[Rfam]
The family of this 67-nucleotide RNA is "lysM-Prevotella RNA".
RNA sequence: UCAAGAGAUAGGAACUUGGCAAUUAGUUCCAGCCUAUUUAGGCUUCAUAGUAUGGAAAUAAAAUAAC
Numbered sequence: 001u002c003a004a005g006a007g008a009u010a011g012g013a014a015c016u017u018g019g020c021a022a023u024u025a026g027u028u029c030c031a032g033c034c035u036a037u038u039u040a041g042g043c044u045u046c047a048u049a050g051u052a053u054g055g056a057a058a059u060a061a062a063a064u065a066a067c
Stems, first nucleotide, its partner, number of pairs: 011030006032043004